[Rfam]
RNA sequence: AACGGACUGCGCAACUGGCGGAAGACAGGAGUCAAAAACUGUUGUGAGAGUACUCACGGGAAGCGUGGUAAUAAAUAAAAUGCCGACCGCCUGGGCGAACACU
Numbered sequence: 001a002a003c004g005g006a007c008u009g010c011g012c013a014a015c016u017g018g019c020g021g022a023a024g025a026c027a028g029g030a031g032u033c034a035a036a037a038a039c040u041g042u043u044g045u046g047a048g049a050g051u052a053c054u055c056a057c058g059g060g061a062a063g064c065g066u067g068g069u070a071a072u073a074a075a076u077a078a079a080a081u082g083c084c085g086a087c088c089g090c091c092u093g094g095g096c097g098a099a100c101a102c103u
Base pairs, nucleotide, nucleotide: 006069007068008067009066010065011064012063015060016059017091018090019089020088021087045056046055047054048053081097082096083095084094
Dot-bracket structure: .....(((((((..(([[[[[.......................((((....))))..))..)))))))...........((((..]]]]]..))))......
The family of this 103-nucleotide sequence from Lachnospiraceae bacterium OM04-12BH is "ZMP/ZTP riboswitch aptamer (pfl RNA motif)".
Rfam 15.1 lists 3,295 matches to the family in 2,545 species.
Lineage of the source: Bacteria > Bacillati > Bacillota > Clostridia > Lachnospiraceae.
A search with the family's covariance model found it, with a score of 50 bits.
The base pairs follow the family's consensus structure, which is taken from published work.